[Rfam]
RNA sequence: GGGUGCUUGAGGCUUUCUGGUCUCAGGCGAAAGCAGGAGUUCAGAAAGACGAAAGCCCCGAUUGACGUUUAAAUCAACCGAGGCCAACGCAUGAAUCCCACAAUUCAGAUGUUAGCCUCUUACCAGCCGAAAGGCAAGGAGCUAACCAUGAAA
Numbered sequence: 001g002g003g004u005g006c007u008u009g010a011g012g013c014u015u016u017c018u019g020g021u022c023u024c025a026g027g028c029g030a031a032a033g034c035a036g037g038a039g040u041u042c043a044g045a046a047a048g049a050c051g052a053a054a055g056c057c058c059c060g061a062u063u064g065a066c067g068u069u070u071a072a073a074u075c076a077a078c079c080g081a082g083g084c085c086a087a088c089g090c091a092u093g094a095a096u097c098c099c100a101c102a103a104u105u106c107a108g109a110u111g112u113u114a115g116c117c118u119c120u121u122a123c124c125a126g127c128c129g130a131a132a133g134g135c136a137a138g139g140a141g142c143u144a145a146c147c148a149u150g151a152a153a
Stems, first nucleotide, its partner, number of pairs: 001059003005056004011050001013048008022039001024037001027034002060079001063077001064075002080119005087112003092107004125143001127141001
RNA: sok antitoxin (CssrC)
Organism: Erwinia tracheiphila